The record is a 91-nucleotide RNA sequence from an Anaerolineales bacterium, which matches "c-di-GMP-I riboswitch aptamer" in Rfam. A search with the family's covariance model found it, with a score of 73 bits.
RNA sequence: ACCGACAAAUCGCAAACCUGCCAAAAGGCGGGGACGCAAAGCCAUGGAUCUAAACCUGUUUCGGAACAGGCACGAUCGCCAGGCUGCCGAA
Numbered sequence: 001a002c003c004g005a006c007a008a009a010u011c012g013c014a015a016a017c018c019u020g021c022c023a024a025a026a027g028g029c030g031g032g033g034a035c036g037c038a039a040a041g042c043c044a045u046g047g048a049u050c051u052a053a054a055c056c057u058g059u060u061u062c063g064g065a066a067c068a069g070g071c072a073c074g075a076u077c078g079c080c081a082g083g084c085u086g087c088c089g090a091a
Stems, first nucleotide, its partner, number of pairs: 012037002017032006040085004045081003048076003055070006

Background:
GEMM was predicted in a large-scale screen for bacterial structured RNA regulatory elements. Genes associated with GEMM are involved in a diverse array of functions, including chemotaxis regulation, signal transduction, secretion and chitin.